[Rfam]
RNA sequence: GGGUCAGCAGUUCACCCAGGCGUCACCGGUCCGCAAGGACAGCUAAACCUGCCA
Numbered sequence: 001g002g003g004u005c006a007g008c009a010g011u012u013c014a015c016c017c018a019g020g021c022g023u024c025a026c027c028g029g030u031c032c033g034c035a036a037g038g039a040c041a042g043c044u045a046a047a048c049c050u051g052c053c054a
Stems, first nucleotide, its partner, number of pairs: 001017004029040004

The family of this 54-nucleotide RNA sequence from Rhodobacter ferrooxidans is "COG3860 RNA". The base pairs follow the family's consensus structure, which is taken from published work. Rfam's curators put it in the seed alignment.